[Rfam]
RNA sequence: GUCAACUACCCCGCCCUCAAGGGCGGAGCUUGUCAAAGCGAGGUUGACCAGACUAAGCCGCUAGUCAGAGUGGCUACGCCACCCCGAGGUCGUUAAAACUUACCAGCAGAUGCUUCCUGAGUCUGCUGCUCUAAAAGGCUUAAAUCAUGCUGGGGAAAGGUAAAGCCCCGAAGGUUUUAGUCGUGGCUAGCCACAGCCGCGGGGUGGCCUUGUUGAAGGGAAAUGGC
Numbered sequence: 001g002u003c004a005a006c007u008a009c010c011c012c013g014c015c016c017u018c019a020a021g022g023g024c025g026g027a028g029c030u031u032g033u034c035a036a037a038g039c040g041a042g043g044u045u046g047a048c049c050a051g052a053c054u055a056a057g058c059c060g061c062u063a064g065u066c067a068g069a070g071u072g073g074c075u076a077c078g079c080c081a082c083c084c085c086g087a088g089g090u091c092g093u094u095a096a097a098a099c100u101u102a103c104c105a106g107c108a109g110a111u112g113c114u115u116c117c118u119g120a121g122u123c124u125g126c127u128g129c130u131c132u133a134a135a136a137g138g139c140u141u142a143a144a145u146c147a148u149g150c151u152g153g154g155g156a157a158a159g160g161u162a163a164a165g166c167c168c169c170g171a172a173g174g175u176u177u178u179a180g181u182c183g184u185g186g187c188u189a190g191c192c193a194c195a196g197c198c199g200c201g202g203g204g205u206g207g208c209c210u211u212g213u214u215g216a217a218g219g220g221a222a223a224u225g226g227c
Base pairs, nucleotide, nucleotide: 001048002047003046004045005044006043007042010028012025013024015022016021029038030037031036051214052213053212055210056075057074058073059072060071061070062069078208079207080206081205082204083203084202085201086200088198100134101133104128105127106126107125108124109123110122111121114222115221116220117219118218137182138181139180140179142177143176144175145174146173151170152169153168154167155166
This 227-nucleotide RNA from Thioploca ingrica belongs to the Rfam family "HNH endonuclease-associated RNA and ORF (HEARO) RNA".
It is annotated as a non-coding RNA gene.
The source organism's lineage runs through Bacteria, Pseudomonadati, Thiotrichales, Thiotrichaceae and Thioploca.